[Rfam]
RNA sequence: AUCCCCAGGACAUCUUGUUAAAAUGCAGAUUCUGAUUUAGUCAGCCUCGGCGGGGAGGGUGGACUUGAGAUUCUGCAUUUUUAACAAGCUCCCAGGUGAUGAUGC
Numbered sequence: 001a002u003c004c005c006c007a008g009g010a011c012a013u014c015u016u017g018u019u020a021a022a023a024u025g026c027a028g029a030u031u032c033u034g035a036u037u038u039a040g041u042c043a044g045c046c047u048c049g050g051c052g053g054g055g056a057g058g059g060u061g062g063a064c065u066u067g068a069g070a071u072u073c074u075g076c077a078u079u080u081u082u083a084a085c086a087a088g089c090u091c092c093c094a095g096g097u098g099a100u101g102a103u104g105c
Base pairs, nucleotide, nucleotide: 003098005096009092014088015087016086017085018084019083020082021080022079023078025076026075027074028073029072031070032069033068
Rfam assigns this 105-nucleotide RNA sequence from Phocoena sinus to the family "mir-544 microRNA precursor family".